[Rfam]
Shown here is a 221-nucleotide RNA sequence from Blautia pseudococcoides, a member of the family "Group II catalytic intron D1-D4-5". Group II introns are found in rRNA, tRNA and mRNA of organelles in fungi, plants and protists, and also in mRNA in bacteria. Its family is annotated with Group II intron splicing in the Gene Ontology.

RNA sequence: GAGAACUAUCAUCUCAACAGGUGGAAUGAAGGGGUAACGCCCGGAAACGCCUGCCCUGAUCCUCCGACAUGCGUUCACUGAAAAUCCGUGUAAUUAAGGACGUGUGCGUAUGAAGCUCGGUAAAGUCAGCUGAGAAUUGCCGUAAUAGAUGGGUAAAUAUCCUGUCUAACGAAAGUCAUCCAGAGGUGGAUGGUGCAAUCUAUAGGCUGGGGGUCUAUAAA
Numbered sequence: 001g002a003g004a005a006c007u008a009u010c011a012u013c014u015c016a017a018c019a020g021g022u023g024g025a026a027u028g029a030a031g032g033g034g035u036a037a038c039g040c041c042c043g044g045a046a047a048c049g050c051c052u053g054c055c056c057u058g059a060u061c062c063u064c065c066g067a068c069a070u071g072c073g074u075u076c077a078c079u080g081a082a083a084a085u086c087c088g089u090g091u092a093a094u095u096a097a098g099g100a101c102g103u104g105u106g107c108g109u110a111u112g113a114a115g116c117u118c119g120g121u122a123a124a125g126u127c128a129g130c131u132g133a134g135a136a137u138u139g140c141c142g143u144a145a146u147a148g149a150u151g152g153g154u155a156a157a158u159a160u161c162c163u164g165u166c167u168a169a170c171g172a173a174a175g176u177c178a179u180c181c182a183g184a185g186g187u188g189g190a191u192g193g194u195g196c197a198a199u200c201u202a203u204a205g206g207c208u209g210g211g212g213g214u215c216u217a218u219a220a221a
Base pairs, nucleotide, nucleotide: 018053019052020051021050022049023048032042033041034040054213055212056211057210064120065119066118067117068112069111070110071109072108073107074106076104077103078102127209128208129207130206131205136199137198138197139196140195141171142170143169148166149165150164151163152162153161175194176193177192178191179190180189181188182187